This 211-nucleotide sequence from Anolis carolinensis belongs to the Rfam family "Small nucleolar RNA SNORA73 family".
Clan: snR30-U17 clan.
Lineage of the source: Eukaryota > Deuterostomia > Euteleostomi > Unidentata > Anolis.
Rfam describes the family as follows. U17 (SNORA73A and SNORA73B) also known as E1 belongs to the H/ACA class of small nucleolar RNAs (snoRNAs). Vertebrate U17 is intron-encoded and ranges in length from 200-230 nucleotides, longer than most snoRNAs.
RNA sequence: CCAAUGGGGAUAUCUGGGAGAGGUCGCGCUCUCUCAGCGCUGUCCGCGUGGCAUGUGGGAGCGUAGGCCUCUGGGCCGGUGAUGUACAGUCCCCUUCCACACCAUUGGAGAGCAAGACGGGCCUCCUCGGAGGUCUGCAGCCUGCAUAUUCCUACUGCUUCUCUGAGCCUUUUGGCCGUGACUGAGGAGACAAACCAUGCAGGAGACAUUG
Numbered sequence: 001c002c003a004a005u006g007g008g009g010a011u012a013u014c015u016g017g018g019a020g021a022g023g024u025c026g027c028g029c030u031c032u033c034u035c036a037g038c039g040c041u042g043u044c045c046g047c048g049u050g051g052c053a054u055g056u057g058g059g060a061g062c063g064u065a066g067g068c069c070u071c072u073g074g075g076c077c078g079g080u081g082a083u084g085u086a087c088a089g090u091c092c093c094c095u096u097c098c099a100c101a102c103c104a105u106u107g108g109a110g111a112g113c114a115a116g117a118c119g120g121g122c123c124u125c126c127u128c129g130g131a132g133g134u135c136u137g138c139a140g141c142c143u144g145c146a147u148a149u150u151c152c153u154a155c156u157g158c159u160u161c162u163c164u165g166a167g168c169c170u171u172u173u174g175g176c177c178g179u180g181a182c183u184g185a186g187g188a189g190a191c192a193a194a195c196c197a198u199g200c201a202g203g204a205g206a207c208a209u210u211g
Stems, first nucleotide, its partner, number of pairs: 001108007008045005014037003019032004048100004057093004061087001063085003066080001141203007158189006167176003